[Rfam]
RNA sequence: CGCGAGGUAGAGCAGCGGUAGCUCGUCGGGCUCAUAACCCGAAGGUCCUAGGUUCGAUCCCUAGCCUCGCUA
Numbered sequence: 001c002g003c004g005a006g007g008u009a010g011a012g013c014a015g016c017g018g019u020a021g022c023u024c025g026u027c028g029g030g031c032u033c034a035u036a037a038c039c040c041g042a043a044g045g046u047c048c049u050a051g052g053u054u055c056g057a058u059c060c061c062u063a064g065c066c067u068c069g070c071u072a
Base pairs, nucleotide, nucleotide: 002070003069004068005067006066007065010024011023012022013021026042027041028040029039030038048064049063050062051061052060

A member of the RNA family "tRNA" from Taibaiella chishuiensis, 72 nucleotides long. The family has 954 seed sequences and 5,335,975 matches in Rfam 15.1. The family's consensus secondary structure is taken from published work. The source organism's lineage runs through Bacteria, Pseudomonadati, Chitinophagia, Chitinophagales and Taibaiella.